[Rfam]
The family of this 86-nucleotide RNA from Wohlfahrtiimonas chitiniclastica is "Selenocysteine transfer RNA". Lineage of the source: Bacteria > Cardiobacteriales > Ignatzschineriaceae > Wohlfahrtiimonas > Wohlfahrtiimonas chitiniclastica. The family's consensus secondary structure is taken from published work.

RNA sequence: GGAAGUAAAUGGGUCCUGGGGGCCCCGCGGUCUUCAACACCGUUGUCAGCCUAUCGGCUGAGGUAGGUUCGAUUCCUGCUGCUUCC
Numbered sequence: 001g002g003a004a005g006u007a008a009a010u011g012g013g014u015c016c017u018g019g020g021g022g023c024c025c026c027g028c029g030g031u032c033u034u035c036a037a038c039a040c041c042g043u044u045g046u047c048a049g050c051c052u053a054u055c056g057g058c059u060g061a062g063g064u065a066g067g068u069u070c071g072a073u074u075c076c077u078g079c080u081g082c083u084u085c086c
Stems, first nucleotide, its partner, number of pairs: 001086007011025006027043005046061005064078004